[Rfam]
RNA sequence: CAACGUCUUUUGGAUGAGAUCUCCAGCCGCCGGAUGCGAUUCGCCACCUGGCUCCACUUCCCCGGAGCCAGGCGACGACGAUCCGGCCGGAUGGGGGUCUGAUUCAAGAAGCCGGACCCU
Numbered sequence: 001c002a003a004c005g006u007c008u009u010u011u012g013g014a015u016g017a018g019a020u021c022u023c024c025a026g027c028c029g030c031c032g033g034a035u036g037c038g039a040u041u042c043g044c045c046a047c048c049u050g051g052c053u054c055c056a057c058u059u060c061c062c063c064g065g066a067g068c069c070a071g072g073c074g075a076c077g078a079c080g081a082u083c084c085g086g087c088c089g090g091a092u093g094g095g096g097g098u099c100u101g102a103u104u105c106a107a108g109a110a111g112c113c114g115g116a117c118c119c120u
Stems, first nucleotide, its partner, number of pairs: 010107006018099002021096005027090003031085004041078003045074001047072008

The family of this 120-nucleotide RNA sequence from Arthrobacter sp. MN05-02 is "mraW RNA". Lineage of the source: Bacteria > Actinomycetes > Micrococcales > Micrococcaceae > Arthrobacter.